[Rfam]
RNA sequence: AUAUAAGGCAAAAUGCACUUUUUGGAUUCAUUGAAUAAUGGAUGUAUCUGUCCUAUAUAUAGUCCAGAUACAUUCAUUAUUCAAUGAAUCUAAAAAGUGCAUUUUGCCUUAUAU
Dot-bracket structure: .((((((.(((((.(((((((((((.((((((((((((((((((....((..............))....)))))))))))))))))).))))))))))).))))).)))))).

Shown here is a 114-nucleotide RNA from Trifolium pratense, a member of the family "MIR2593 microRNA precursor family". Pairs were carried over by alignment from the consensus structure, which was predicted with RNAalifold.